Mammalian CPEB3 ribozyme: a 76-nucleotide RNA sequence from Crocodylus porosus. The base pairs follow the family's consensus structure, which is taken from published work. The match comes from Rfam's covariance-model search (36 bits).
RNA sequence: UAUAUAUAAUACAAGGCCAUAGCAGAAGUGCUCAUGGUGCAGCCUGUCCGAUUCCAGCCAGCCUGAGAAUUCUGCU
Numbered sequence: 001u002a003u004a005u006a007u008a009a010u011a012c013a014a015g016g017c018c019a020u021a022g023c024a025g026a027a028g029u030g031c032u033c034a035u036g037g038u039g040c041a042g043c044c045u046g047u048c049c050g051a052u053u054c055c056a057g058c059c060a061g062c063c064u065g066a067g068a069a070u071u072c073u074g075c076u
Stems, first nucleotide, its partner, number of pairs: 015044003021076007028040003048065001050063001052061002
Lineage of the source: Eukaryota > Opisthokonta > Sauria > Longirostres > Crocodylus. Its family is annotated with RNA nuclease activity in the Gene Ontology.